RNA sequence: CUUGAUCGACCCCAGCCACAGCGGGUCCCCGUCGCGCUCCCUGCCGUACGUCGCGAGCAGCGCCUGCGCCUC
Numbered sequence: 001c002u003u004g005a006u007c008g009a010c011c012c013c014a015g016c017c018a019c020a021g022c023g024g025g026u027c028c029c030c031g032u033c034g035c036g037c038u039c040c041c042u043g044c045c046g047u048a049c050g051u052c053g054c055g056a057g058c059a060g061c062g063c064c065u066g067c068g069c070c071u072c
Stems, first nucleotide, its partner, number of pairs: 014026001016024002028068001030066001035062002040057001042055001044053001046051001
Shown here is a 72-nucleotide sequence, a member of the family "ASpks TB sRNA". The family's RNA type in Rfam is antisense RNA.